[Rfam]
RNA sequence: CCCUCGUCCAACAAAUCGCUAUCGAAGCUCACACACAGAGACAAUCUCGAUUCCCACCUCGUGGGGGCAGAGCUCUCGUCUCCAGAUUUCGCUUUGGGAGAAAGUCCCCGGACAUUUCUUCGCGCUUUUGUGCGGAGAAGCUGCGGAAACGCGCCGCCAUAGAAGCACUGCGGCUGAUCUCCCCCGCCUGAUACUUGCUCCCUUCUAGUCUUGCCUGUCCUCUGCGGUACCCGCUGCCUCCCUUCGCGGGGGGGCUGGGCUGGCAUGGCUUGACCCGGGCCUGGAGACCACAUGGACGAAGAUACGAGUCCGCGCUCCAGACCGGCGACGGUUCUGCCUUUCCAUGGGACCACCGCGCUGGCGCUCAAGGUGGCUUCGGACUUGGAUCGCUAGGGCAGGGUUUGGAGAGCUUUUCGUCGAGAUGCAAUAGGUAUGCGAUUGCCCAUGUGCCCUCACCGGCCUCUGGGUUACUCGAUGGGGCUUAUUCUUGGCACGAGG
Numbered sequence: 001c002c003c004u005c006g007u008c009c010a011a012c013a014a015a016u017c018g019c020u021a022u023c024g025a026a027g028c029u030c031a032c033a034c035a036c037a038g039a040g041a042c043a044a045u046c047u048c049g050a051u052u053c054c055c056a057c058c059u060c061g062u063g064g065g066g067g068c069a070g071a072g073c074u075c076u077c078g079u080c081u082c083c084a085g086a087u088u089u090c091g092c093u094u095u096g097g098g099a100g101a102a103a104g105u106c107c108c109c110g111g112a113c114a115u116u117u118c119u120u121c122g123c124g125c126u127u128u129u130g131u132g133c134g135g136a137g138a139a140g141c142u143g144c145g146g147a148a149a150c151g152c153g154c155c156g157c158c159a160u161a162g163a164a165g166c167a168c169u170g171c172g173g174c175u176g177a178u179c180u181c182c183c184c185c186g187c188c189u190g191a192u193a194c195u196u197g198c199u200c201c202c203u204u205c206u207a208g209u210c211u212u213g214c215c216u217g218u219c220c221u222c223u224g225c226g227g228u229a230c231c232c233g234c235u236g237c238c239u240c241c242c243u244u245c246g247c248g249g250g251g252g253g254g255c256u257g258g259g260c261u262g263g264c265a266u267g268g269c270u271u272g273a274c275c276c277g278g279g280c281c282u283g284g285a286g287a288c289c290a291c292a293u294g295g296a297c298g299a300a301g302a303u304a305c306g307a308g309u310c311c312g313c314g315c316u317c318c319a320g321a322c323c324g325g326c327g328a329c330g331g332u333u334c335u336g337c338c339u340u341u342c343c344a345u346g347g348g349a350c351c352a353c354c355g356c357g358c359u360g361g362c363g364c365u366c367a368a369g370g371u372g373g374c375u376u377c378g379g380a381c382u383u384g385g386a387u388c389g390c391u392a393g394g395g396c397a398g399g400g401u402u403u404g405g406a407g408a409g410c411u412u413u414u415c416g417u418c419g420a421g422a423u424g425c426a427a428u429a430g431g432u433a434u435g436c437g438a439u440u441g442c443c444c445a446u447g448u449g450c451c452c453u454c455a456c457c458g459g460c461c462u463c464u465g466g467g468u469u470a471c472u473c474g475a476u477g478g479g480g481c482u483u484a485u486u487c488u489u490g491g492c493a494c495g496a497g498g
Stems, first nucleotide, its partner, number of pairs: 002498006008491004014440006022098001023096006038082005044076001102483003106480004352365001354363003368411002374407006381399003442467004447462001

A member of the RNA family "RNase MRP" from Thyridium curvatum, 498 nucleotides long. The match comes from Rfam's covariance-model search (100 bits). Rfam classes the family as a ribozyme. NCBI's taxonomy places the organism under Eukaryota, Opisthokonta, Pezizomycotina, sordariomyceta, Thyridium.